[Rfam]
RNA sequence: UAUUAGGUUGGUGCAAAACUAAUUGAGGUUUUUGCUAUUAUUUUAAUGGCAAAAACCACAAUUAGUUUUGCACCAACCUAAUA
Numbered sequence: 001u002a003u004u005a006g007g008u009u010g011g012u013g014c015a016a017a018a019c020u021a022a023u024u025g026a027g028g029u030u031u032u033u034g035c036u037a038u039u040a041u042u043u044u045a046a047u048g049g050c051a052a053a054a055a056c057c058a059c060a061a062u063u064a065g066u067u068u069u070g071c072a073c074c075a076a077c078c079u080a081a082u083a
Base pairs, nucleotide, nucleotide: 001083002082003081004080005079006078007077008076009075010074011073012072013071014070015069016068017067018066019065020064021063022062023061024060025059027057028056029055030054031053032052033051034050035049036048037047038046039045040044
Rfam assigns this 83-nucleotide sequence from Mandrillus leucophaeus to the family "mir-548 microRNA precursor family". The literature on the family includes a 2010 paper in BMC Biol by Witten et al., "Ultra-high throughput sequencing-based small RNA discovery and discrete statistical biomarker analysis in a collection of cervical tumours and matched controls". Rfam 15.1 lists 3,009 matches to the family in 27 species. A search with the family's covariance model found it, with a score of 91 bits. Taxonomically the source falls in Mandrillus (Eukaryota, Deuterostomia, Catarrhini, Cercopithecinae). Rfam links the family to the GO terms miRNA-mediated post-transcriptional gene silencing and RISC complex.